The family of this 407-nucleotide sequence from Lachnellula occidentalis is "Group I catalytic intron". Gene Ontology term of the family: Group I intron splicing. Rfam describes the family as follows. Group I catalytic introns are large self-splicing ribozymes. They catalyse their own excision from mRNA, tRNA and rRNA precursors in a wide range of organisms. The core secondary structure consists of 9 paired regions (P1-P9). These fold to essentially two domains - the P4-P6 domain (formed from the stacking of P5, P4, P6 and P6a helices) and the P3-P9 domain (formed from the P8, P3, P7 and P9 helices). For this family Rfam cites "Crystal structure of a group I ribozyme domain: principles of RNA packing" (Cate et al., Science, 1996).
RNA sequence: CUAACAAUUUUGUGAGAUAGGCUCCUUGAAAUAGUAAUGUUUCAGUGGCUAAUGAGGUGAAUUGCAAGAACAUCUAUUUAACCUAACCUCCGGUUAAUUAGAUUAUUUGCAGCGAAGUUUGACAUGGAAUAUAUAUGUGUCAAAAACGUUCAACGACUAACAAGUGAGCAUUACCGCAAUAAGCUUGACACGAGUACCUCACAACCUUUUUAUAACUUUUAUUAUUUAAUUUAUUCUAAUUAGAAUACACCCUAUAAAAAGUUAUAUAUUACCUAACCUUAUGGUUAGUUAGUUCUUUCCCUUAUUUAUAUCAAUAAAGGGAUGCUUGCUCAAGGCUGUUAUGCAGCCAAAGCAAAGACACAAAGAAAAGGUUGAAGAUAUAGUCUAAACAAAACUGAAAAGUUUUG
Numbered sequence: 001c002u003a004a005c006a007a008u009u010u011u012g013u014g015a016g017a018u019a020g021g022c023u024c025c026u027u028g029a030a031a032u033a034g035u036a037a038u039g040u041u042u043c044a045g046u047g048g049c050u051a052a053u054g055a056g057g058u059g060a061a062u063u064g065c066a067a068g069a070a071c072a073u074c075u076a077u078u079u080a081a082c083c084u085a086a087c088c089u090c091c092g093g094u095u096a097a098u099u100a101g102a103u104u105a106u107u108u109g110c111a112g113c114g115a116a117g118u119u120u121g122a123c124a125u126g127g128a129a130u131a132u133a134u135a136u137g138u139g140u141c142a143a144a145a146a147c148g149u150u151c152a153a154c155g156a157c158u159a160a161c162a163a164g165u166g167a168g169c170a171u172u173a174c175c176g177c178a179a180u181a182a183g184c185u186u187g188a189c190a191c192g193a194g195u196a197c198c199u200c201a202c203a204a205c206c207u208u209u210u211u212a213u214a215a216c217u218u219u220u221a222u223u224a225u226u227u228a229a230u231u232u233a234u235u236c237u238a239a240u241u242a243g244a245a246u247a248c249a250c251c252c253u254a255u256a257a258a259a260a261g262u263u264a265u266a267u268a269u270u271a272c273c274u275a276a277c278c279u280u281a282u283g284g285u286u287a288g289u290u291a292g293u294u295c296u297u298u299c300c301c302u303u304a305u306u307u308a309u310a311u312c313a314a315u316a317a318a319g320g321g322a323u324g325c326u327u328g329c330u331c332a333a334g335g336c337u338g339u340u341a342u343g344c345a346g347c348c349a350a351a352g353c354a355a356a357g358a359c360a361c362a363a364a365g366a367a368a369a370g371g372u373u374g375a376a377g378a379u380a381u382a383g384u385c386u387a388a389a390c391a392a393a394a395c396u397g398a399a400a401a402g403u404u405u406u407g
Stems, first nucleotide, its partner, number of pairs: 001020003030041003053201004058196002063111006073102004112149002118143002123137003153386001155385005204372008392405005